[Rfam]
This 103-nucleotide sequence from Pelobacter propionicus belongs to the Rfam family "TPP riboswitch aptamer (THI element)". From the family's description: Vitamin B(1) in its active form thiamin pyrophosphate (TPP) is an essential coenzyme that is synthesised by coupling of pyrimidine and thiazole moieties in bacteria. The organism belongs to Pelobacter propionicus, within Bacteria. A search with the family's covariance model found it, with a score of 70 bits.
Nucleotides: 103
Base pairs, nucleotide, nucleotide: 007090008089009088010087011053012052013051014050017024018023031046032045033044034043035042059084060083061082065078066077067076068075
Number, partner (000 for none) and nucleotide at each position: 001000g002000a003000a004000a005000a006000a007090c008089g009088c010087u011053g012052g013051g014050g015000g016000a017024g018023u019000u020000u021000c022000g023018a024017c025000u026000g027000a028000g029000a030000g031046c032045a033044a034043c035042c036000g037000u038000u039000u040000a041000c042035g043034g044033u045032u046031g047000c048000g049000a050014c051013c052012c053011u054000u055000a056000g057000u058000a059084c060083c061082u062000g063000a064000u065078c066077c067076g068075g069000g070000u071000a072000a073000u074000g075068c076067c077066g078065g079000c080000g081000g082061a083060g084059g085000g086000a087010a088009g089008c090007g091000c092000a093000u094000g095000u096000u097000a098000u099000c100000a101000a102000c103000a